Annotation
A member of the RNA family "K10 transport/localisation element (TLS)" from Sphenodon punctatus, 53 nucleotides long. It is annotated as a cis-regulatory element. Rfam 15.1 lists 18 matches to the family in 17 species. The literature on the family includes a 1995 paper in Development by Serano and Cohen, "A small predicted stem-loop structure mediates oocyte localization of Drosophila K10 mRNA". Rfam's curators write: This family represents the 44 nucleotide K10 transport/localisation element (TLS) from Drosophila melanogaster. K10 TLS is responsible for the transport and anterior localisation of K10 mRNA and acts to establish dorsoventral polarity in the oocyte. The source organism's lineage runs through Eukaryota, Deuterostomia, Chordata, Craniata and Sphenodon.
RNA sequence: GUUUUGAAUGUGUUUUUAAAAUAAUGCACAUUUUUAAAAACCACAUUCAAAAC
Numbered sequence: 001g002u003u004u005u006g007a008a009u010g011u012g013u014u015u016u017u018a019a020a021a022u023a024a025u026g027c028a029c030a031u032u033u034u035u036a037a038a039a040a041c042c043a044c045a046u047u048c049a050a051a052a053c
Base pairs, nucleotide, nucleotide: 001053002052003051004050005049006048007047008046009045010044011043012042013040014039015038016037017036018035019034020033021032
Dot-bracket structure: (((((((((((((((((((((..........))))))))).))))))))))))